[Rfam]
RNA sequence: ACACCUGAAAUCAAGCAAGAUCACCCGCUGAACUUAAGCAUAUCAGUAAGCGGAGGAAAAGAAACUAACAAGGAUUGCCUUAGUAGUGGCGAAUGAACCGGCAAUAGCUCAAAGUGUAAAUCUGAGGCAUCAAGUCUUAGAAUUGUAAUCUAUAGGCCUUUUAGGGAAGCCAUGGUUCUAGCAUAAGUUCCUUGAAAAGGGAUGCCAAAGAGGGUAAAAGCCCCGUAUUUGGUUAGGACUGGGUGUACCGAAGGGUUCCAAGAGUCGGGUUGUUUGGGAUUGCAGCCUAAAAUGGGAGAUAAACUUCUUCUAAAGCUAAAUAUUUAUGGGAAACCGAUAGCAAACAAGUACUACGAAGGAAAGAUGAAAAGAACUUUGAAAAGAGGGUUAAAAGACUUGAAAUCGUUGAGGAGAAAAG
Numbered sequence: 001a002c003a004c005c006u007g008a009a010a011u012c013a014a015g016c017a018a019g020a021u022c023a024c025c026c027g028c029u030g031a032a033c034u035u036a037a038g039c040a041u042a043u044c045a046g047u048a049a050g051c052g053g054a055g056g057a058a059a060a061g062a063a064a065c066u067a068a069c070a071a072g073g074a075u076u077g078c079c080u081u082a083g084u085a086g087u088g089g090c091g092a093a094u095g096a097a098c099c100g101g102c103a104a105u106a107g108c109u110c111a112a113a114g115u116g117u118a119a120a121u122c123u124g125a126g127g128c129a130u131c132a133a134g135u136c137u138u139a140g141a142a143u144u145g146u147a148a149u150c151u152a153u154a155g156g157c158c159u160u161u162u163a164g165g166g167a168a169g170c171c172a173u174g175g176u177u178c179u180a181g182c183a184u185a186a187g188u189u190c191c192u193u194g195a196a197a198a199g200g201g202a203u204g205c206c207a208a209a210g211a212g213g214g215u216a217a218a219a220g221c222c223c224c225g226u227a228u229u230u231g232g233u234u235a236g237g238a239c240u241g242g243g244u245g246u247a248c249c250g251a252a253g254g255g256u257u258c259c260a261a262g263a264g265u266c267g268g269g270u271u272g273u274u275u276g277g278g279a280u281u282g283c284a285g286c287c288u289a290a291a292a293u294g295g296g297a298g299a300u301a302a303a304c305u306u307c308u309u310c311u312a313a314a315g316c317u318a319a320a321u322a323u324u325u326a327u328g329g330g331a332a333a334c335c336g337a338u339a340g341c342a343a344a345c346a347a348g349u350a351c352u353a354c355g356a357a358g359g360a361a362a363g364a365u366g367a368a369a370a371g372a373a374c375u376u377u378g379a380a381a382a383g384a385g386g387g388u389u390a391a392a393a394g395a396c397u398u399g400a401a402a403u404c405g406u407u408g409a410g411g412a413g414a415a416a417a418g
Stems, first nucleotide, its partner, number of pairs: 024055001025053005035042002065072002076103004086094002106317004113149001115147005121141007155258002157255004162251001164249002177237006187203001189202004206210001213223002267288007294311005351358002374385004
Record summary: A member of the RNA family "Eukaryotic large subunit ribosomal RNA" from Paramecium octaurelia, 418 nucleotides of a longer RNA. The organism belongs to Paramecium, within Eukaryota.